[Rfam]
RNA: SAH (S-adenosyl-L-homocysteine) riboswitch aptamer
Organism: Pseudomonas jinjuensis
RNA sequence: CCGUUCGAGGGGCGCUGCAGCUGGUAGCAACCAGUCAGGCUCGAACGGAGCGCGCUCACAGGGCAGCUUCCCCGCCCUGUCAACGCACCAACGGCGCCCAUUCGCA
Numbered sequence: 001c002c003g004u005u006c007g008a009g010g011g012g013c014g015c016u017g018c019a020g021c022u023g024g025u026a027g028c029a030a031c032c033a034g035u036c037a038g039g040c041u042c043g044a045a046c047g048g049a050g051c052g053c054g055c056u057c058a059c060a061g062g063g064c065a066g067c068u069u070c071c072c073c074g075c076c077c078u079g080u081c082a083a084c085g086c087a088c089c090a091a092c093g094g095c096g097c098c099c100a101u102u103c104g105c106a
Stems, first nucleotide, its partner, number of pairs: 002047007021034005